[Rfam]
RNA sequence: UUGACAGUCCAACAACCACCAGCCCGAGGGAGAUACUCGCGGUGCGGCACUCGGGAGAGAGUGCCAGCGAUUAGUUCGCUUGAUGACGUGGGGAUGGGACAC
Number, nucleotide and partner (000 for none) at each position: 001u000002u000003g000004a000005c000006a000007g100008u099009c098010c097011a000012a000013c000014a000015a000016c091017c090018a089019c088020c000021a000022g000023c000024c042025c041026g040027a000028g038029g037030g036031a000032g000033a000034u000035a000036c030037u029038c028039g000040c026041g025042g024043u000044g000045c000046g065047g064048c063049a062050c061051u060052c059053g000054g000055g000056a000057g000058a000059g052060a051061g050062u049063g048064c047065c046066a080067g079068c078069g077070a076071u000072u000073a000074g000075u000076u070077c069078g068079c067080u066081u000082g000083a000084u000085g000086a000087c000088g019089u018090g017091g016092g000093g000094a000095u000096g000097g010098g009099a008100c007101a000102c000
RNA: RAGATH-24 RNA